Shown here is a 122-nucleotide sequence, a member of the family "TPP riboswitch aptamer (THI element)". A search with the family's covariance model found it, with a score of 66 bits. The base pairs follow the family's consensus structure, which is taken from published work.
RNA sequence: CAAAUCAGCGAGGGGUGCCGACUGCCAACCAUGGACGAGUUCCAUGCGUUGACCGGCUGAGAUGAGACCCUUAGAACCUGAUCCGGUUCGCACCGGCGGAGGGAUUGCUGACUUUUUGUUAU
Numbered sequence: 001c002a003a004a005u006c007a008g009c010g011a012g013g014g015g016u017g018c019c020g021a022c023u024g025c026c027a028a029c030c031a032u033g034g035a036c037g038a039g040u041u042c043c044a045u046g047c048g049u050u051g052a053c054c055g056g057c058u059g060a061g062a063u064g065a066g067a068c069c070c071u072u073a074g075a076a077c078c079u080g081a082u083c084c085g086g087u088u089c090g091c092a093c094c095g096g097c098g099g100a101g102g103g104a105u106u107g108c109u110g111a112c113u114u115u116u117u118g119u120u121a122u
Base pairs, nucleotide, nucleotide: 006110007109008108009107010106011071012070013069014068016065017057018056019055020054077102078101079100083096084095085094086093